RNA sequence: UUGAAGUUCCAUCUACAAAUGGAUAAGACAUUUUGUCUUAGUGUAUAGGAAUUGUUGAAGGAAUAAUACCAAACCUCUAAUAAGGAGGUUUGGUAUUACUCCUUU
Numbered sequence: 001u002u003g004a005a006g007u008u009c010c011a012u013c014u015a016c017a018a019a020u021g022g023a024u025a026a027g028a029c030a031u032u033u034u035g036u037c038u039u040a041g042u043g044u045a046u047a048g049g050a051a052u053u054g055u056u057g058a059a060g061g062a063a064u065a066a067u068a069c070c071a072a073a074c075c076u077c078u079a080a081u082a083a084g085g086a087g088g089u090u091u092g093g094u095a096u097u098a099c100u101c102c103u104u105u
Stems, first nucleotide, its partner, number of pairs: 008023005058104005064098006071091003075087004
This 105-nucleotide RNA sequence from Colocasia esculenta belongs to the Rfam family "Plastid-psbA-1 3UTR RNA". On this family, see Richter et al., Plant Commun 2023: "Retrograde signaling in plants: A critical review focusing on the GUN pathway and beyond". A search with the family's covariance model found it, with a score of 87 bits. Pairs were carried over by alignment from the consensus structure, which was predicted with LocARNA. Plastid psbA-1 is a non-coding RNA (ncRNA) present in plastids. It was identified in inverted repeat sequences in the 3 prime untranslate region (3UTR) of photosystem II quinone-binding protein (psbA). Its Rfam clan is "Plastid-psbA 3UTR RNA clan". The organism belongs to Colocasia, within Eukaryota.